[Rfam]
RNA sequence: UGUCUCCUCCACCCUCCUCUAAAGGUGGAUUCAGCCCGAGGUUCAUGCCUCGGGCUUUUUUUU
Numbered sequence: 001u002g003u004c005u006c007c008u009c010c011a012c013c014c015u016c017c018u019c020u021a022a023a024g025g026u027g028g029a030u031u032c033a034g035c036c037c038g039a040g041g042u043u044c045a046u047g048c049c050u051c052g053g054g055c056u057u058u059u060u061u062u063u
Stems, first nucleotide, its partner, number of pairs: 008029006033056008

A member of the RNA family "Betaproteobacteria toxic small RNA" from Sphaerotilus hippei, 63 nucleotides long. A search with the family's covariance model found it, with a score of 72 bits. A reference for the family is Kimelman et al. (2012), "A vast collection of microbial genes that are toxic to bacteria", Genome Res. From the family's description: Overexpression in amino aid rich medium attenuates growth, suggesting role in repressing amino acid intake and metabolism.